RNA: Group II catalytic intron D1-D4-3
RNA sequence: GGAAGGGCGACCGACCGUGGGAAGGAAGCGUGAAUCGAAACUGCGAGCCGAUGAACAAGAAUCGGAUACAAGGCGCUACCGAGCAGGGCGAGCGGGCCAAUCACCGCGAAGCUCUUGUGGUCAAGGCGAAGUGGCGUAGAUCCGGCGGUUGUGCAGUGAAGGAGUGCGUUC
Numbered sequence: 001g002g003a004a005g006g007g008c009g010a011c012c013g014a015c016c017g018u019g020g021g022a023a024g025g026a027a028g029c030g031u032g033a034a035u036c037g038a039a040a041c042u043g044c045g046a047g048c049c050g051a052u053g054a055a056c057a058a059g060a061a062u063c064g065g066a067u068a069c070a071a072g073g074c075g076c077u078a079c080c081g082a083g084c085a086g087g088g089c090g091a092g093c094g095g096g097c098c099a100a101u102c103a104c105c106g107c108g109a110a111g112c113u114c115u116u117g118u119g120g121u122c123a124a125g126g127c128g129a130a131g132u133g134g135c136g137u138a139g140a141u142c143c144g145g146c147g148g149u150u151g152u153g154c155a156g157u158g159a160a161g162g163a164g165u166g167c168g169u170u171c
Stems, first nucleotide, its partner, number of pairs: 001016002005012002028171001030169003035163002040157006046150005062145006073137003077133003083127001086114004092107004
Dot-bracket structure: ((..((....))..))...........(.(((..((...(((((((((((...........((((((.....(((.(((...(..((((..((((........))))...))))............)...))).)))..))))))))))).))))))....))...))).)